[Rfam]
RNA: Clostridiales-2 RNA
Organism: Anaerosolibacter carboniphilus
RNA sequence: UAUAUAUGGGGUGUGCAGAGGGGAUUCUCCUUUGCCGUUUUCAUGAAGGUACUCAGGCUGCUUAGCAGCCGUCAAAGGAGAC
Number, nucleotide and partner (000 for none) at each position: 001u000002a000003u000004a000005u000006a000007u000008g000009g000010g000011g000012u000013g000014u000015g035016c034017a033018g032019a031020g030021g029022g028023g000024a000025u000026u000027c000028u022029c021030c020031u019032u018033u017034g016035c015036c000037g000038u000039u000040u000041u000042c000043a000044u000045g000046a000047a000048g000049g000050u000051a000052c000053u000054c000055a000056g070057g069058c068059u067060g066061c000062u000063u000064a000065g000066c060067a059068g058069c057070c056071g000072u000073c000074a000075a000076a000077g000078g000079a000080g000081a000082c000